Rfam assigns this 84-nucleotide sequence from Heliornis fulica to the family "Small nucleolar RNA SNORD121A". It scores 54 bits against the family's covariance model. Rfam classes the family as a C/D-box small nucleolar RNA. The literature on the family includes a 2006 paper in Nucleic Acids Res by Yang et al., "snoSeeker: an advanced computational package for screening of guide and orphan snoRNA genes in the human genome". Pairs were carried over by alignment from the consensus structure, which was predicted with WAR. The organism belongs to Heliornis, within Eukaryota. Rfam links the family to the GO terms RNA processing and nucleolus.
RNA sequence: GUCCAAAAUACAGUGAUAUUAUCUUUUCCAAGCAUAUAUAUGAUUGGUCUGUGUGGAAAAAGACUUGCUGAGUGAUUUUCUGAU
Numbered sequence: 001g002u003c004c005a006a007a008a009u010a011c012a013g014u015g016a017u018a019u020u021a022u023c024u025u026u027u028c029c030a031a032g033c034a035u036a037u038a039u040a041u042g043a044u045u046g047g048u049c050u051g052u053g054u055g056g057a058a059a060a061a062g063a064c065u066u067g068c069u070g071a072g073u074g075a076u077u078u079u080c081u082g083a084u
Base pairs, nucleotide, nucleotide: 001084002083003082005079006078008076009075010073011072